[Rfam]
Shown here is a 122-nucleotide sequence from Adineta ricciae, a member of the family "U4atac minor spliceosomal RNA".
U4atac is an essential component of the minor U12-type spliceosome complex which is required for removal of the rarer class of eukaryotic introns (AT-AC, U12-type).
The family has 61 seed sequences and 1,648 matches in Rfam 15.1.
The literature on the family includes a 2008 paper in J Mol Evol by Marz et al., "Evolution of spliceosomal snRNA genes in metazoan animals".
Taxonomically the source falls in Adineta (Eukaryota, Opisthokonta, Metazoa, Bdelloidea).

RNA sequence: UUAGUCCUUGUCUUUGGGGAGCGGAACUAUUCAAUGAACGUUUAGUGAGAGUAGUUUUGCUGACAAAUUAAGUCAUUUCAUCGCAUUAAUAUGUCCUCAUUAUUAAUGCAAUUUUUGGCAAG
Numbered sequence: 001u002u003a004g005u006c007c008u009u010g011u012c013u014u015u016g017g018g019g020a021g022c023g024g025a026a027c028u029a030u031u032c033a034a035u036g037a038a039c040g041u042u043u044a045g046u047g048a049g050a051g052u053a054g055u056u057u058u059g060c061u062g063a064c065a066a067a068u069u070a071a072g073u074c075a076u077u078u079c080a081u082c083g084c085a086u087u088a089a090u091a092u093g094u095c096c097u098c099a100u101u102a103u104u105a106a107u108g109c110a111a112u113u114u115u116u117g118g119c120a121a122g
Stems, first nucleotide, its partner, number of pairs: 005019004021060004026055007038046002083109006091100003